[Rfam]
RNA sequence: UACUGGCUUUAGGGGUAUUCUGCAAAGAAUUGAGACAGUCCCUUUGAACCUGAUUCAGUUAACACUGGCGUAGGGAAAAGUUAGAAAUACAUU
Numbered sequence: 001u002a003c004u005g006g007c008u009u010u011a012g013g014g015g016u017a018u019u020c021u022g023c024a025a026a027g028a029a030u031u032g033a034g035a036c037a038g039u040c041c042c043u044u045u046g047a048a049c050c051u052g053a054u055u056c057a058g059u060u061a062a063c064a065c066u067g068g069c070g071u072a073g074g075g076a077a078a079a080g081u082u083a084g085a086a087a088u089a090c091a092u093u
Stems, first nucleotide, its partner, number of pairs: 006081005011043004016037001017030005049074004055068004

This 93-nucleotide RNA sequence from Polaribacter cellanae belongs to the Rfam family "TPP riboswitch aptamer (THI element)".
The base pairs follow the family's consensus structure, which is taken from published work.